[Rfam]
RNA sequence: CGUAGGUUCAAGGCCACAGCAGAAGUGCUCAAGGUGCGGCCGUCAGACUCCAACAAAUCUGUGAACUCUGCU
Dot-bracket structure: ............[[[..((((((.(((.......)))]]]...((((.(......).)))).....))))))